[Rfam]
The record is a 156-nucleotide sequence from Megasphaera sp. An286, which matches "glmS glucosamine-6-phosphate activated ribozyme aptamer" in Rfam. By type it is a riboswitch. From the family's description: This entry contains a glucosamine-6-phosphate activated ribozyme that is found in the mRNA for GlmS. GlmS is an enzyme that uses fructose-6-phosphate and glutamine to generate glucosamine-6-phosphate. The ribozyme catalyses self cleavage of the glmS mRNA that is thought to regulate GlmS activity.

RNA sequence: GUAAAAUGGAUAGCGCUAGUGCCCGCCGGCAACGGCGGGCGGACGAGGAAGAGGAGUAUCGAACAUGUCAGCGGAUGCCUCUCGGCAGCUUCAGUCGUUACAUGGCGGAAAAGCAUUGCGGCAACGGAAUGGACAAUGUCGUCGUGGGAAGCAAAU
Dot-bracket structure: ...................((((((((......))))))))........(((((....(.((.....)).)......)))))((((.(...).))))...(((((((......((((.((....)).))))........)))))))..........
Numbered sequence: 001g002u003a004a005a006a007u008g009g010a011u012a013g014c015g016c017u018a019g020u021g022c023c024c025g026c027c028g029g030c031a032a033c034g035g036c037g038g039g040c041g042g043a044c045g046a047g048g049a050a051g052a053g054g055a056g057u058a059u060c061g062a063a064c065a066u067g068u069c070a071g072c073g074g075a076u077g078c079c080u081c082u083c084g085g086c087a088g089c090u091u092c093a094g095u096c097g098u099u100a101c102a103u104g105g106c107g108g109a110a111a112a113g114c115a116u117u118g119c120g121g122c123a124a125c126g127g128a129a130u131g132g133a134c135a136a137u138g139u140c141g142u143c144g145u146g147g148g149a150a151g152c153a154a155a156u
Stems, first nucleotide, its partner, number of pairs: 020041008050082005059071001061069002083097004088092001101146007114131004119126002